Overview:
A member of the RNA family "MIR8643 microRNA precursor family" from Gossypium arboreum, 149 nucleotides long. The base pairs follow the family's consensus structure, which was predicted with RNAalifold. NCBI's taxonomy places the organism under Eukaryota, Streptophyta, Streptophytina, Euphyllophyta, Gossypium.

RNA sequence: GUUUCUUUUAACAUAUCAAGAAGUCGAAUUGUCAGUGAAAAAAGAAGUAGGAAGUUGAAAGCCAUCAUUGGCUUUAAUCAAAACCUAUAAACACAUACCAUGGUUCUUUUUUCACUGCCAAUUCGACUUCUUGAUAUGUUAAAAAAAAU
Numbered sequence: 001g002u003u004u005c006u007u008u009u010a011a012c013a014u015a016u017c018a019a020g021a022a023g024u025c026g027a028a029u030u031g032u033c034a035g036u037g038a039a040a041a042a043a044g045a046a047g048u049a050g051g052a053a054g055u056u057g058a059a060a061g062c063c064a065u066c067a068u069u070g071g072c073u074u075u076a077a078u079c080a081a082a083a084c085c086u087a088u089a090a091a092c093a094c095a096u097a098c099c100a101u102g103g104u105u106c107u108u109u110u111u112u113c114a115c116u117g118c119c120a121a122u123u124c125g126a127c128u129u130c131u132u133g134a135u136a137u138g139u140u141a142a143a144a145a146a147a148a149u
Stems, first nucleotide, its partner, number of pairs: 004146001006144013020130012033117014048102002051099001056095002
A search with the family's covariance model found it, with a score of 157 bits. Its family is annotated with miRNA-mediated post-transcriptional gene silencing and RISC complex in the Gene Ontology.